[Rfam]
RNA: Glycine riboswitch aptamer
Organism: Rossellomorea vietnamensis
RNA sequence: CUCUGGAGAGUGUUUCCGUUACCCGGAAACCACCAAAGGGGAAAGCCGUUCUUCGGUAAACUUUCAGGUGCAAGGACAGAG
Dot-bracket structure: (((((......((((...........)))).(((.(..(((....((.......))....))))..))).......)))))
Numbered sequence: 001c002u003c004u005g006g007a008g009a010g011u012g013u014u015u016c017c018g019u020u021a022c023c024c025g026g027a028a029a030c031c032a033c034c035a036a037a038g039g040g041g042a043a044a045g046c047c048g049u050u051c052u053u054c055g056g057u058a059a060a061c062u063u064u065c066a067g068g069u070g071c072a073a074g075g076a077c078a079g080a081g
Stems, first nucleotide, its partner, number of pairs: 001081005012030004032069003036064001039063003046056002